[Rfam]
RNA sequence: AUAUCAAUCUCAUUAGCAAACUAUCGCCAAGCUUCUCUACGAGAAAUUUCACCAACUCACCCACAACCAAUCAAGAUGUCUCCCUGCUCCUGCAACUGCUGCCAAGGCGAGUGCAACUCUUGCUCCUGCAACAGCUGCAGCGUAAGUUCUU
Numbered sequence: 001a002u003a004u005c006a007a008u009c010u011c012a013u014u015a016g017c018a019a020a021c022u023a024u025c026g027c028c029a030a031g032c033u034u035c036u037c038u039a040c041g042a043g044a045a046a047u048u049u050c051a052c053c054a055a056c057u058c059a060c061c062c063a064c065a066a067c068c069a070a071u072c073a074a075g076a077u078g079u080c081u082c083c084c085u086g087c088u089c090c091u092g093c094a095a096c097u098g099c100u101g102c103c104a105a106g107g108c109g110a111g112u113g114c115a116a117c118u119c120u121u122g123c124u125c126c127u128g129c130a131a132c133a134g135c136u137g138c139a140g141c142g143u144a145a146g147u148u149c150u151u
Stems, first nucleotide, its partner, number of pairs: 085109004092102003113138003122129002
The family of this 151-nucleotide RNA sequence from Talaromyces marneffei is "A. fumigatus sRNA Afu_254". The literature on the family includes a 2008 paper in Nucleic Acids Res by Jochl et al., "Small ncRNA transcriptome analysis from Aspergillus fumigatus suggests a novel mechanism for regulation of protein synthesis".